[Rfam]
RNA: Streptomyces RNA 6106
RNA sequence: ACGCCGUCCCCGAGCGGCGUACCUGGCCUCGCACGGGCCAUCGCGGGGGUGGUGCCGUGUCGGCGCAGCACCACCCCCGCACC
Dot-bracket structure: (((((((......)))))))(....((((.....))).).).(((((((((((((.(((....))).)))))))))))))...
Numbered sequence: 001a002c003g004c005c006g007u008c009c010c011c012g013a014g015c016g017g018c019g020u021a022c023c024u025g026g027c028c029u030c031g032c033a034c035g036g037g038c039c040a041u042c043g044c045g046g047g048g049g050u051g052g053u054g055c056c057g058u059g060u061c062g063g064c065g066c067a068g069c070a071c072c073a074c075c076c077c078c079g080c081a082c083c
Stems, first nucleotide, its partner, number of pairs: 001020007021041001026039001027037003043080013057066003